[Rfam]
RNA: Small nucleolar RNA SNORA25
Organism: Hipposideros armiger
RNA sequence: AGGUCGUUUCACAGAGAGCUCGUGGGACCCAAACCAGGAGCUCUUAAUACUGCGACCAAAGACUGACGUUCUCCAUAGGAUGUAAUCGUCACUCAAUAGUGCUACGUUUUCCUGAGGACAUGUAAGA
Numbered sequence: 001a002g003g004u005c006g007u008u009u010c011a012c013a014g015a016g017a018g019c020u021c022g023u024g025g026g027a028c029c030c031a032a033a034c035c036a037g038g039a040g041c042u043c044u045u046a047a048u049a050c051u052g053c054g055a056c057c058a059a060a061g062a063c064u065g066a067c068g069u070u071c072u073c074c075a076u077a078g079g080a081u082g083u084a085a086u087c088g089u090c091a092c093u094c095a096a097u098a099g100u101g102c103u104a105c106g107u108u109u110u111c112c113u114g115a116g117g118a119c120a121u122g123u124a125a126g127a
Stems, first nucleotide, its partner, number of pairs: 002057006014045008023037001026035001070120001072118003077113004086104001088102001090101004
Dot-bracket structure: .((((((......((((((((.(..(........).)))))))))......))))))............(.(((..((((.....(.(.((((....))))).).....))))..))).).......